[Rfam]
RNA sequence: AUUGCUGCGGUGAUGACACAUUGUGGACUAGAGUUUCUGAUACUACCUCUUCAGUAGUAUCUGAAGACAACCCCUUGGCUGUCUGAGCUCCCAG
Numbered sequence: 001a002u003u004g005c006u007g008c009g010g011u012g013a014u015g016a017c018a019c020a021u022u023g024u025g026g027a028c029u030a031g032a033g034u035u036u037c038u039g040a041u042a043c044u045a046c047c048u049c050u051u052c053a054g055u056a057g058u059a060u061c062u063g064a065a066g067a068c069a070a071c072c073c074c075u076u077g078g079c080u081g082u083c084u085g086a087g088c089u090c091c092c093a094g
Base pairs, nucleotide, nucleotide: 002093004091007088008087034066035065036064037063041059042058043057044056045055046054

Rfam assigns this 94-nucleotide RNA from Brachypodium distachyon to the family "Small nucleolar RNA Z157/R69/R10". The family's consensus secondary structure was predicted with PFOLD. A search with the family's covariance model found it, with a score of 71 bits. Gene Ontology terms of the family: nucleolus and RNA processing. The organism belongs to Brachypodium, within Eukaryota. The family is grouped with related families in Rfam's "SNORD52 clan".